SAM riboswitch aptamer (S box leader): a 109-nucleotide RNA sequence from Armatimonas rosea. Rfam links the family to the GO term regulation of gene expression.

RNA sequence: GUCUUGUCCAGAGUGGCGGAGGGAUCGGCCCUAUGAAACCACCGCAACCGGCGCGAAUCUGCGUAGCCUGGUGCGAAUUCCGAGCAGGCGCUUCCUGCGAAGACAAGAG
Numbered sequence: 001g002u003c004u005u006g007u008c009c010a011g012a013g014u015g016g017c018g019g020a021g022g023g024a025u026c027g028g029c030c031c032u033a034u035g036a037a038a039c040c041a042c043c044g045c046a047a048c049c050g051g052c053g054c055g056a057a058u059c060u061g062c063g064u065a066g067c068c069u070g071g072u073g074c075g076a077a078u079u080c081c082g083a084g085c086a087g088g089c090g091c092u093u094c095c096u097g098c099g100a101a102g103a104c105a106a107g108a109g
Stems, first nucleotide, its partner, number of pairs: 002108007013042004021031003025083004043075004048071002050068003079101001084098005

NCBI's taxonomy places the organism under Bacteria, Bacillati, Armatimonadia, Armatimonadales, Armatimonas.